Alphaproteobacterial ar14: a 126-nucleotide sequence from Ensifer sp. M14.
RNA sequence: AUCGAUCGGGGCGGCGCACUCCUCCUCCCAGCGCCCCUCGAUUUGGAUCGGCAGCACUCCUCCUCCCAGUUGCCGAUCAGAAUAAAACGACGCUCGCUGGAUCUCCUCCCCCAGCGGGCGUUGUUU
Numbered sequence: 001a002u003c004g005a006u007c008g009g010g011g012c013g014g015c016g017c018a019c020u021c022c023u024c025c026u027c028c029c030a031g032c033g034c035c036c037c038u039c040g041a042u043u044u045g046g047a048u049c050g051g052c053a054g055c056a057c058u059c060c061u062c063c064u065c066c067c068a069g070u071u072g073c074c075g076a077u078c079a080g081a082a083u084a085a086a087a088c089g090a091c092g093c094u095c096g097c098u099g100g101a102u103c104u105c106c107u108c109c110c111c112c113a114g115c116g117g118g119c120g121u122u123g124u125u126u
Stems, first nucleotide, its partner, number of pairs: 007040003011036001013035005046078010090121011

Background
The match comes from Rfam's covariance-model search (105 bits). By type it is a small RNA. The source organism's lineage runs through Bacteria, Pseudomonadati, Pseudomonadota, Rhizobiaceae and Ensifer. About the family: Smr14C2 was renamed NfeR1 (Nodule Formation Efficiency RNA) highly expressed in salt stress and during the symbiotic interaction on legume roots.